[Rfam]
RNA sequence: AUGCAUCCAUUAGGAACUGAACCUACUAAUUUGCCAAUUAUGAAUUAGGCGCUUCAACCAUUCAUUCAUGGAUGC
Numbered sequence: 001a002u003g004c005a006u007c008c009a010u011u012a013g014g015a016a017c018u019g020a021a022c023c024u025a026c027u028a029a030u031u032u033g034c035c036a037a038u039u040a041u042g043a044a045u046u047a048g049g050c051g052c053u054u055c056a057a058c059c060a061u062u063c064a065u066u067c068a069u070g071g072a073u074g075c
Base pairs, nucleotide, nucleotide: 003075004074005073006072007071008070011025012024013023014022040069041068042067044066046064048062049061051059
RNA: Plastid-ycf2 5UTR RNA